[Rfam]
RNA: mir-344 microRNA precursor family
RNA sequence: UUACCAGUCAGGCUCUUGCUAUACUCCAGAACAAACUUGGUCCUGGGUAUAACCAAAGCCUGACUCUAUA
Numbered sequence: 001u002u003a004c005c006a007g008u009c010a011g012g013c014u015c016u017u018g019c020u021a022u023a024c025u026c027c028a029g030a031a032c033a034a035a036c037u038u039g040g041u042c043c044u045g046g047g048u049a050u051a052a053c054c055a056a057a058g059c060c061u062g063a064c065u066c067u068a069u070a
Stems, first nucleotide, its partner, number of pairs: 007064003011060004017055001018053001020051004026040004